[Rfam]
RNA sequence: GUUUCGGGCGGAGAGCUGUGGGAAGCUCUCCUGGUAUGGAAGCGAGACUACCCGGAUCUGGUGCAGCCGGCCGCCCAACCGUGCUGU
Numbered sequence: 001g002u003u004u005c006g007g008g009c010g011g012a013g014a015g016c017u018g019u020g021g022g023a024a025g026c027u028c029u030c031c032u033g034g035u036a037u038g039g040a041a042g043c044g045a046g047a048c049u050a051c052c053c054g055g056a057u058c059u060g061g062u063g064c065a066g067c068c069g070g071c072c073g074c075c076c077a078a079c080c081g082u083g084c085u086g087u
Base pairs, nucleotide, nucleotide: 001043002042003041004040005039010031011030012029013028014027015026016025017024063087064086065085066084067083068081069080070079

Rfam assigns this 87-nucleotide RNA sequence from Seohaeicola zhoushanensis to the family "Rhodo-rpoB RNA". The family's consensus secondary structure is taken from published work. The family's RNA type in Rfam is cis-regulatory element.